[Rfam]
RNA sequence: GCACGGGAGCCCCCCACGGGGGCUGAGAGGGCGUCGGAGCCGACCGUCGAACCUGAUCUGGGUCAUGCCAGCGAAGGGAGC
Numbered sequence: 001g002c003a004c005g006g007g008a009g010c011c012c013c014c015c016a017c018g019g020g021g022g023c024u025g026a027g028a029g030g031g032c033g034u035c036g037g038a039g040c041c042g043a044c045c046g047u048c049g050a051a052c053c054u055g056a057u058c059u060g061g062g063u064c065a066u067g068c069c070a071g072c073g074a075a076g077g078g079a080g081c
Stems, first nucleotide, its partner, number of pairs: 001081002003047004009023005030041003052077003058071004
Record summary: Rfam assigns this 81-nucleotide RNA sequence from Cellulosimicrobium funkei to the family "TPP riboswitch aptamer (THI element)". It scores 56 bits against the family's covariance model.